Nuclear RNase P: a 341-nucleotide sequence from Microcebus murinus. The sequence is in the family's curated seed alignment. The base pairs follow the family's consensus structure, which is taken from published work. The organism belongs to Microcebus, within Eukaryota. The family's RNA type in Rfam is ribozyme.

RNA sequence: GGAGGGGAGGUCAUCAGUGUGGCCACGAGCCGAGUGCGUCAUGUCACUCCACCCCCCAUGUCCCUUGGGAAGGUCUGAGACUAGGGCCAGAAGCACCCCUAAACAGGGCUCUCCCUGAGUUUCGGGGAGUUGAGUUGGCAGAGACCCGGGCUCCGCGCGAGGUCAGACUGGGCAGGAGAUGCCGUGGACCCCGCCCCCCAGGACGGGCGCGGCGGACGCCUCCUCAGCCUGAACAAGGUGCUUUUUUUGCGAAACACCGCCAGCGAAGUGAGUUCAAUGGCUGAGGUGAGGUACCCCGCAUGGGGGCUUCAUAACCCAAUUCAGACUACUCUCCCCCGUCC
Numbered sequence: 001g002g003a004g005g006g007g008a009g010g011u012c013a014u015c016a017g018u019g020u021g022g023c024c025a026c027g028a029g030c031c032g033a034g035u036g037c038g039u040c041a042u043g044u045c046a047c048u049c050c051a052c053c054c055c056c057c058a059u060g061u062c063c064c065u066u067g068g069g070a071a072g073g074u075c076u077g078a079g080a081c082u083a084g085g086g087c088c089a090g091a092a093g094c095a096c097c098c099c100u101a102a103a104c105a106g107g108g109c110u111c112u113c114c115c116u117g118a119g120u121u122u123c124g125g126g127g128a129g130u131u132g133a134g135u136u137g138g139c140a141g142a143g144a145c146c147c148g149g150g151c152u153c154c155g156c157g158c159g160a161g162g163u164c165a166g167a168c169u170g171g172g173c174a175g176g177a178g179a180u181g182c183c184g185u186g187g188a189c190c191c192c193g194c195c196c197c198c199c200a201g202g203a204c205g206g207g208c209g210c211g212g213c214g215g216a217c218g219c220c221u222c223c224u225c226a227g228c229c230u231g232a233a234c235a236a237g238g239u240g241c242u243u244u245u246u247u248u249g250c251g252a253a254a255c256a257c258c259g260c261c262a263g264c265g266a267a268g269u270g271a272g273u274u275c276a277a278u279g280g281c282u283g284a285g286g287u288g289a290g291g292u293a294c295c296c297c298g299c300a301u302g303g304g305g306g307c308u309u310c311a312u313a314a315c316c317c318a319a320u321u322c323a324g325a326c327u328a329c330u331c332u333c334c335c336c337c338g339u340c341c
Base pairs, nucleotide, nucleotide: 001341002340003339005334006333007332011284012283013282015280019065021063022062032049033048034047035046036045037043075324076323077322078321079320086239087238088237096108097107098106111129112128113127114126115125116124130236131235134234135233136232150228151227152226286312287311288310289309290308291307292306